[Rfam]
RNA sequence: CUUCUGGUGCAUCCUCGCGACUAAUGACAGCCUUCAAUCUUCAAGAGUUAAAGUCUCUCAUUAGCCGCGCGAAUCUCUGCAACAUAAGAUCACCCAUGCAACAAUACAUUAGUUUGCUUUGAAUUGCUGCCGGUUACUCGAAAAAAGGGGCCAUGAUGGCCCCUUUUU
Numbered sequence: 001c002u003u004c005u006g007g008u009g010c011a012u013c014c015u016c017g018c019g020a021c022u023a024a025u026g027a028c029a030g031c032c033u034u035c036a037a038u039c040u041u042c043a044a045g046a047g048u049u050a051a052a053g054u055c056u057c058u059c060a061u062u063a064g065c066c067g068c069g070c071g072a073a074u075c076u077c078u079g080c081a082a083c084a085u086a087a088g089a090u091c092a093c094c095c096a097u098g099c100a101a102c103a104a105u106a107c108a109u110u111a112g113u114u115u116g117c118u119u120u121g122a123a124u125u126g127c128u129g130c131c132g133g134u135u136a137c138u139c140g141a142a143a144a145a146a147g148g149g150g151c152c153a154u155g156a157u158g159g160c161c162c163c164u165u166u167u168u
Stems, first nucleotide, its partner, number of pairs: 001088003005084002009080003016071004021064007095121001147163006
Dot-bracket structure: (((.((..(((....((((.(((((((..............................)))))))...))))......)))..)).)))......(.........................).........................((((((.....)))))).....
RNA: SraG RNA
Organism: Izhakiella capsodis